[Rfam]
RNA sequence: GUAACCGCGAGGUCAAGCUGAAAGAAGGGGGAGGCAAAGACACGACCGCACCAAUCGAAACAGGUAAAGAGACCGAGUGUGGGCGAUGAGCGUGCUAGGAAACGCGAAAUCCAACUGUAACCGAAAGACACAUCAAGUAGAGCCUGACGGCACGGGUCGAAAGUACAUGUU
Numbered sequence: 001g002u003a004a005c006c007g008c009g010a011g012g013u014c015a016a017g018c019u020g021a022a023a024g025a026a027g028g029g030g031g032a033g034g035c036a037a038a039g040a041c042a043c044g045a046c047c048g049c050a051c052c053a054a055u056c057g058a059a060a061c062a063g064g065u066a067a068a069g070a071g072a073c074c075g076a077g078u079g080u081g082g083g084c085g086a087u088g089a090g091c092g093u094g095c096u097a098g099g100a101a102a103c104g105c106g107a108a109a110u111c112c113a114a115c116u117g118u119a120a121c122c123g124a125a126a127g128a129c130a131c132a133u134c135a136a137g138u139a140g141a142g143c144c145u146g147a148c149g150g151c152a153c154g155g156g157u158c159g160a161a162a163g164u165a166c167a168u169g170u171u
Base pairs, nucleotide, nucleotide: 002015004013005012006011027171028170030168034164035163039158040157041156043154044153046150047149048148061146062145063144064143065142072138073137077133078132079131080130081129085111086110087109090105091104092103093102
RNA: Group II catalytic intron D1-D4-3
Organism: Achromatium sp. WMS2